[Rfam]
RNA sequence: GACGGUCCGGUUCACGCCGUCAGCAGACGGCGACCCGGCGCCC
Numbered sequence: 001g002a003c004g005g006u007c008c009g010g011u012u013c014a015c016g017c018c019g020u021c022a023g024c025a026g027a028c029g030g031c032g033a034c035c036c037g038g039c040g041c042c043c
Stems, first nucleotide, its partner, number of pairs: 004042002007038004015032007
RNA: L31-Actinobacteria ribosomal protein leader